[Rfam]
Shown here is a 79-nucleotide RNA sequence from Clupea harengus, a member of the family "mir-458 microRNA precursor family". The literature on the family includes a 2008 paper in Genome Res by Glazov et al., "A microRNA catalog of the developing chicken embryo identified by a deep sequencing approach". A search with the family's covariance model found it, with a score of 62 bits.
RNA sequence: GCACGAUGGCAGCGCCAUUUACAGAGCUGUAAGCCAUGAUGGUUGUCAUAAGCUCUUUGAAUGGUACUGCCAUACGUUA
Dot-bracket structure: ((...(((.(((.(((((((..((((((((.................)).))))))..))))))).))).)))..))..